[Rfam]
RNA sequence: GUGCCUCAGGUUUGUGGUUGAAAGUCGAUGCCAGAUGCAGGCGAAGCGAUCCACGUAAGACAAUUUAAAAGCAAAUUGUUGAUCAUGGUGCGUCUUAGAAGUAAGUCCAGCCGGCGAAAGCCGAGAGAAGGAGUUGUGAUGCUAACACUGAGCUAAACUUCCUGUUGGCGAGUGUGGGGGAAAAGACCAGGUCAACUGAGGCAA
Numbered sequence: 001g002u003g004c005c006u007c008a009g010g011u012u013u014g015u016g017g018u019u020g021a022a023a024g025u026c027g028a029u030g031c032c033a034g035a036u037g038c039a040g041g042c043g044a045a046g047c048g049a050u051c052c053a054c055g056u057a058a059g060a061c062a063a064u065u066u067a068a069a070a071g072c073a074a075a076u077u078g079u080u081g082a083u084c085a086u087g088g089u090g091c092g093u094c095u096u097a098g099a100a101g102u103a104a105g106u107c108c109a110g111c112c113g114g115c116g117a118a119a120g121c122c123g124a125g126a127g128a129a130g131g132a133g134u135u136g137u138g139a140u141g142c143u144a145a146c147a148c149u150g151a152g153c154u155a156a157a158c159u160u161c162c163u164g165u166u167g168g169c170g171a172g173u174g175u176g177g178g179g180g181a182a183a184a185g186a187c188c189a190g191g192u193c194a195a196c197u198g199a200g201g202c203a204a
Base pairs, nucleotide, nucleotide: 002203003202004201005200006199007198008197009196012195013194014193015189016188017187018186019185028175029174030173031041033095034094035093036092037091038090039089050088051087055083058080060079061078062077063076064075065074086182107168108167109166110165111164112123113122114121115120127161128160129159130158136153137152